[Rfam]
RNA sequence: CGCUCGCAUCCGCUGAAUUCCCGUUGGACGCGGGAAGCGGGGGACCCACUGCAGGUGGGGCGAGUCGAUGGUCGUCCUGGUCGUCGUAGCGCCGCUCUUCUGGCGCGAGCCCGUCAGCUAACCCCGUAAGCCGAGGAAGAGGACGA
Numbered sequence: 001c002g003c004u005c006g007c008a009u010c011c012g013c014u015g016a017a018u019u020c021c022c023g024u025u026g027g028a029c030g031c032g033g034g035a036a037g038c039g040g041g042g043g044a045c046c047c048a049c050u051g052c053a054g055g056u057g058g059g060g061c062g063a064g065u066c067g068a069u070g071g072u073c074g075u076c077c078u079g080g081u082c083g084u085c086g087u088a089g090c091g092c093c094g095c096u097c098u099u100c101u102g103g104c105g106c107g108a109g110c111c112c113g114u115c116a117g118c119u120a121a122c123c124c125c126g127u128a129a130g131c132c133g134a135g136g137a138a139g140a141g142g143a144c145g146a
Base pairs, nucleotide, nucleotide: 012131013130014129018036019035020034021033022032023031024030037127038126039125040124041123042122047057048056058112059111060110066086067085068084069083070082071081089106090105091104092103
This 146-nucleotide RNA from Solirubrobacter pauli belongs to the Rfam family "c-di-AMP riboswitch aptamer (ydaO/yuaA leader)". Taxonomically the source falls in Solirubrobacter (Bacteria, Bacillati, Actinomycetota, Solirubrobacteraceae).